[Rfam]
RNA sequence: UUCACAACAUCGCUGGCAGUGGCGGGGGACCCAACAUCGGUCCCGGGAAACCGGGUCCUUGGGGUUAAGCAACCACGCGGUUGCCGGGAGACUCCCUCCCGAAUCCGACAGCUCACCUCGUAGGCACAGGGAGAGGUACA
Numbered sequence: 001u002u003c004a005c006a007a008c009a010u011c012g013c014u015g016g017c018a019g020u021g022g023c024g025g026g027g028g029a030c031c032c033a034a035c036a037u038c039g040g041u042c043c044c045g046g047g048a049a050a051c052c053g054g055g056u057c058c059u060u061g062g063g064g065u066u067a068a069g070c071a072a073c074c075a076c077g078c079g080g081u082u083g084c085c086g087g088g089a090g091a092c093u094c095c096c097u098c099c100c101g102a103a104u105c106c107g108a109c110a111g112c113u114c115a116c117c118u119c120g121u122a123g124g125c126a127c128a129g130g131g132a133g134a135g136g137u138a139c140a
Stems, first nucleotide, its partner, number of pairs: 003021003022121006032061002062106003070083004086100004
Dot-bracket structure: ..(((.............)))((((((....((..........................))(((.....((((......))))..((((.......))))...))).........))))))...................